[Rfam]
RNA sequence: UUGCCAGAUGGGGAUGGAGCUCCCCGGAACCGCCUCACCGAAGGCUGAUGGCUCCUGCCGCAAG
Number, nucleotide and partner (000 for none) at each position: 001u000002u000003g000004c000005c000006a000007g000008a000009u000010g025011g024012g023013g022014a000015u000016g055017g054018a053019g052020c051021u050022c013023c012024c011025c010026g000027g000028a000029a000030c000031c000032g045033c044034c043035u042036c000037a000038c000039c000040g000041a000042a035043g034044g033045c032046u000047g000048a000049u000050g021051g020052c019053u018054c017055c016056u000057g000058c000059c000060g000061c000062a000063a000064g000